[Rfam]
RNA sequence: AAUAUGAUUUGUUAGGUGAGGCUCCUAUGCAAACAUAGGCUACUGCCCAAAAAUGUCGAGAGACGCCAAUGGGUAGAACAGGAACUGUCGAAUACAAGGCUUUUCUUAAGGUAGCUAAGAUGUUUAUCUUUACGUUGCAUAGUGUCAAAACUCAACGAUUAGAUCAACGU
Number, nucleotide and partner (000 for none) at each position: 001a000002a000003u000004a000005u166006g165007a164008u163009u162010u161011g156012u155013u097014a000015g152016g151017u150018g000019a000020g146021g145022c144023u000024c000025c142026u141027a140028u139029g138030c137031a136032a135033a000034c000035a000036u000037a000038g000039g115040c114041u113042a112043c111044u000045g074046c073047c072048c071049a070050a000051a000052a000053a000054u065055g064056u063057c062058g000059a000060g000061a000062g057063a056064c055065g054066c000067c000068a000069a000070u049071g048072g047073g046074u045075a000076g000077a000078a000079c000080a000081g106082g105083a104084a103085c000086u000087g100088u099089c098090g000091a000092a000093u000094a000095c000096a000097a013098g089099g088100c087101u000102u000103u084104u083105c082106u081107u000108a000109a000110g000111g043112u042113a041114g040115c039116u000117a130118a129119g128120a000121u000122g000123u000124u000125u000126a000127u000128c119129u118130u117131u000132a000133c000134g000135u032136u031137g030138c029139a028140u027141a026142g025143u000144g022145u021146c020147a000148a000149a000150a017151c016152u015153c000154a000155a012156c011157g000158a000159u000160u000161a010162g009163a008164u007165c006166a005167a000168c000169g000170u000
M-box riboswitch aptamer (ykoK leader): a 170-nucleotide RNA from Enterococcus pallens.
A search with the family's covariance model found it, with a score of 160 bits.
Rfam 15.1 lists 1,095 matches to the family in 932 species.
M-box riboswitch, also know as ykoK leader is described as a metaloregulatory RNA that sense divalent metals and function as a genetic control element of genes related to divalent metal transport in bacteria. It was first reported upstream of the B.subtilis ykoK gene and genes with related functions in other bacteria.